The record is a 368-nucleotide RNA sequence from Endobacterium cereale, which matches "Alphaproteobacteria transfer-messenger RNA" in Rfam.
It is annotated as a non-coding RNA gene.
Taxonomically the source falls in Endobacterium (Bacteria, Pseudomonadati, Alphaproteobacteria, Rhizobiaceae).
RNA sequence: CCUCUUUUCAACGGGCUCGCGAACCCCUAUAUCACCCGUGCCGGGCUUCGGUCCGGAUAUGGCGAUAAAUGGUCGGUGUAAUAAACCUAUUGGACCCGGGGGCGGUACCCGGCGCCUCCACCAAAAACCGGUCGGUCGAAAUGACCGGCUUUUGAUGGGGGCGAAAUAGGAUCGACAAGGGCGUAAAGAUCGUACUUUUGCUCGGCAUGAUACCGCCGUUAUCGGGUCACAAGUGUAGUUGCAAACGACAACAACGCUAAGGAAUACGCUCUCGCUGCCUAAUGGCGGUGCGGGAAUUCCGCUUUAAGUCCUUACGGUUAGCCCCGUAAGGCGGGGUUCGGAGGUACCUGGCAACAGAAACCUCCACC
Numbered sequence: 001c002c003u004c005u006u007u008u009c010a011a012c013g014g015g016c017u018c019g020c021g022a023a024c025c026c027c028u029a030u031a032u033c034a035c036c037c038g039u040g041c042c043g044g045g046c047u048u049c050g051g052u053c054c055g056g057a058u059a060u061g062g063c064g065a066u067a068a069a070u071g072g073u074c075g076g077u078g079u080a081a082u083a084a085a086c087c088u089a090u091u092g093g094a095c096c097c098g099g100g101g102g103c104g105g106u107a108c109c110c111g112g113c114g115c116c117u118c119c120a121c122c123a124a125a126a127a128c129c130g131g132u133c134g135g136u137c138g139a140a141a142u143g144a145c146c147g148g149c150u151u152u153u154g155a156u157g158g159g160g161g162c163g164a165a166a167u168a169g170g171a172u173c174g175a176c177a178a179g180g181g182c183g184u185a186a187a188g189a190u191c192g193u194a195c196u197u198u199u200g201c202u203c204g205g206c207a208u209g210a211u212a213c214c215g216c217c218g219u220u221a222u223c224g225g226g227u228c229a230c231a232a233g234u235g236u237a238g239u240u241g242c243a244a245a246c247g248a249c250a251a252c253a254a255c256g257c258u259a260a261g262g263a264a265u266a267c268g269c270u271c272u273c274g275c276u277g278c279c280u281a282a283u284g285g286c287g288g289u290g291c292g293g294g295a296a297u298u299c300c301g302c303u304u305u306a307a308g309u310c311c312u313u314a315c316g317g318u319u320a321g322c323c324c325c326g327u328a329a330g331g332c333g334g335g336g337u338u339c340g341g342a343g344g345u346a347c348c349u350g351g352c353a354a355c356a357g358a359a360a361c362c363u364c365c366a367c368c
Base pairs, nucleotide, nucleotide: 041056042055043054044053045052046051061202062201063200064199065198071195074192075191076190077189086181087180088179090178091177092176096112097111098110099109100108113163114162115161116160117159118158119157203218204217205216206215208229209228210227213225214224334349335348336347337346340365341364342363343362344361345360